A member of the RNA family "Eukaryotic large subunit ribosomal RNA" from Hanseniaspora uvarum, 281 nucleotides of a longer RNA. NCBI's taxonomy places the organism under Eukaryota, Opisthokonta, Saccharomycetes, Saccharomycodaceae, Hanseniaspora. Rfam links the family to the GO terms ribosome and structural constituent of ribosome.
[Rfam]
Nucleotides: 281
Stems, first nucleotide, its partner, number of pairs: 005137006012130006020044003025039005048055002063087005070079003089120002091117003094113003100107002140279002143276001147269006156245011167233001169201004176193007205230004210226002213224002247257002
Number, partner (000 for none) and nucleotide at each position: 001000g002000a003000g004000u005137c006136u007135a008134a009133c010132g011000u012130c013129u014128a015127u016126g017125c018000g019000a020044g021043u022042g023000u024000u025039u026038g027037g028036g029035u030000g031000u032000a033000a034000a035029a036028c037027c038026c039025g040000u041000a042022c043021g044020c045000g046000u047000a048055a049054u050000g051000a052000a053000a054049g055048u056000g057000a058000a059000c060000g061000u062000a063087g064086g065085u066084u067083g068000g069000g070079g071078c072077c073000u074000u075000c076000g077072g078071g079070u080000g081000c082000a083067c084066a085065a086064u087063c088000g089120a090119c091117c092116g093115a094113c095112c096111u097000u098000g099000a100107u101106g102000u103000u104000u105000u106101c107100g108000g109000a110000u111096a112095g113094g114000u115093u116092u117091g118000a119090g120089u121000a122000a123000g124000a125017g126016c127015a128014u129013a130012g131000c132010u133009g134008u135007u136006g137005g138000g139000a140279c141278c142000c143276g144000a145000a146000a147269g148268a149267u150266g151265g152264u153000g154000a155000a156245c157244u158243a159242u160241g161240c162239c163238u164237g165236a166235a167233u168000a169201g170200g171199g172198u173000g174000a175000a176193g177192c178191c179190a180189g181188a182187g183000g184000a185000a186000a187182c188181u189180c190179u191178g192177g193176u194000g195000g196000a197000g198172g199171c200170u201169c202000g203000u204000a205230g206229c207228g208227g209000u210226u211225c212000u213224g214223a215000c216000g217000u218000g219000c220000a221000a222000a223214u224213c225211g226210a227208u228207c229206g230205u231000c232000g233167a234000a235166u236165u237164u238163g239162g240161g241160u242159a243158u244157a245156g246000g247257g248256g249000c250000g251000a252000a253000a254000g255000a256248c257247u258000a259000a260000u261000c262000g263000a264152a265151c266150c267149a268148u269147c270000u271000a272000g273000u274000a275000g276143c277000u278141g279140g280000u281000u